RNA sequence: AACGACAAAGCCAAACCCGUCGAGAGACGGGAAAGGGAAACUACGGGUGUUCGCAUCCUCGGCGACGUUCUAUCGCCACGAAGGACGCAAGAUCGCCCGGCUGCCGAAG
Numbered sequence: 001a002a003c004g005a006c007a008a009a010g011c012c013a014a015a016c017c018c019g020u021c022g023a024g025a026g027a028c029g030g031g032a033a034a035g036g037g038a039a040a041c042u043a044c045g046g047g048u049g050u051u052c053g054c055a056u057c058c059u060c061g062g063c064g065a066c067g068u069u070c071u072a073u074c075g076c077c078a079c080g081a082a083g084g085a086c087g088c089a090a091g092a093u094c095g096c097c098c099g100g101c102u103g104c105c106g107a108a109g
Base pairs, nucleotide, nucleotide: 003106004105011036012035016031017030018029019028020027021026039102041100042099045097046096047093048092
The record is a 109-nucleotide RNA sequence, which matches "c-di-GMP-I-GGC riboswitch aptamer" in Rfam. The family's consensus secondary structure is taken from published work. Its family is annotated with cyclic-di-GMP binding in the Gene Ontology. Rfam's curators put it in the seed alignment.